[Rfam]
RNA: FMN riboswitch aptamer (RFN element)
RNA sequence: AAUAUGUUCCGGGGACGGUGAAAUUCCGUGCCGGCGGUGACAGUCCGCGACCUGGGUGCACGUCGUGCACCCGGUUGACUCGGUGGAAUUCCGAGACCGACAGUAAGAGUCUGGAUGGGAGGAACAUGGC
Numbered sequence: 001a002a003u004a005u006g007u008u009c010c011g012g013g014g015a016c017g018g019u020g021a022a023a024u025u026c027c028g029u030g031c032c033g034g035c036g037g038u039g040a041c042a043g044u045c046c047g048c049g050a051c052c053u054g055g056g057u058g059c060a061c062g063u064c065g066u067g068c069a070c071c072c073g074g075u076u077g078a079c080u081c082g083g084u085g086g087a088a089u090u091c092c093g094a095g096a097c098c099g100a101c102a103g104u105a106a107g108a109g110u111c112u113g114g115a116u117g118g119g120a121g122g123a124a125c126a127u128g129g130c
Stems, first nucleotide, its partner, number of pairs: 003128008016028003030110002032099002034048004043097002052074002079095005101113003
Dot-bracket structure: ..((((((((.....(((.......))).[[((((((.....[[))))...((...................))....(((((.......)))))]])).(((.....]]))).......))))))))..